RNA: terC RNA
Organism: Devosia sp. Root436
RNA sequence: GUGCGGCGCCGGGCCCCUCUGGCGAGGACGAUCCAUGUCCUCGUGAUGUCGGAGCUGCUCC
Numbered sequence: 001g002u003g004c005g006g007c008g009c010c011g012g013g014c015c016c017c018u019c020u021g022g023c024g025a026g027g028a029c030g031a032u033c034c035a036u037g038u039c040c041u042c043g044u045g046a047u048g049u050c051g052g053a054g055c056u057g058c059u060c061c
Stems, first nucleotide, its partner, number of pairs: 006055002009052004022044008